[Rfam]
RNA sequence: CCGUUAAAUGAUGACGUGGCAGAUGAAAUGUCACAUCAUCAUGUCUUGUCAUUGACAUCUCAUUGUCAUGUCAUCCCCUUUAGUGAUGUGGCAAUGACGUGUCAGUGAAAAUGCGUGAUGACGUGACUCUUUUUCUGUCACGUCAUGACUAAAGGCA
Numbered sequence: 001c002c003g004u005u006a007a008a009u010g011a012u013g014a015c016g017u018g019g020c021a022g023a024u025g026a027a028a029u030g031u032c033a034c035a036u037c038a039u040c041a042u043g044u045c046u047u048g049u050c051a052u053u054g055a056c057a058u059c060u061c062a063u064u065g066u067c068a069u070g071u072c073a074u075c076c077c078c079u080u081u082a083g084u085g086a087u088g089u090g091g092c093a094a095u096g097a098c099g100u101g102u103c104a105g106u107g108a109a110a111a112u113g114c115g116u117g118a119u120g121a122c123g124u125g126a127c128u129c130u131u132u133u134u135c136u137g138u139c140a141c142g143u144c145a146u147g148a149c150u151a152a153a154g155g156c157a
Stems, first nucleotide, its partner, number of pairs: 001155002004152003009148001011146013025132003030127005036121009046111001049108004054103005070087005
Dot-bracket structure: ((.(((..(.(((((((((((((.(((..(((((.(((((((((.(..((((.(((((...........(((((........)))))...........))))).))))..).))))))))).)))))..))).))))))))))))).).))).))..